SAM riboswitch aptamer (S box leader): a 122-nucleotide RNA from Marivirga tractuosa. Gene Ontology term of the family: regulation of gene expression.

RNA sequence: AACUUAUCCAGAAAGACUGAGGGAAUGGGCCCUUUGAAGUCUUAGCAACCCUUCCAAUGCAUUUGCAAAAGGAAACGGUGCUAACUCCCAUUUCGAGAUUUACGCUCGGAAGAAGAUAAGAA
Numbered sequence: 001a002a003c004u005u006a007u008c009c010a011g012a013a014a015g016a017c018u019g020a021g022g023g024a025a026u027g028g029g030c031c032c033u034u035u036g037a038a039g040u041c042u043u044a045g046c047a048a049c050c051c052u053u054c055c056a057a058u059g060c061a062u063u064u065g066c067a068a069a070a071g072g073a074a075a076c077g078g079u080g081c082u083a084a085c086u087c088c089c090a091u092u093u094c095g096a097g098a099u100u101u102a103c104g105c106u107c108g109g110a111a112g113a114a115g116a117u118a119a120g121a122a
Base pairs, nucleotide, nucleotide: 003120004119005118006117007116008115013043014042015041016040017039021032022031023030026090027089028088029087044082045081046080047079049078050077052074053073054072055071086114091111092110093109094108095107096106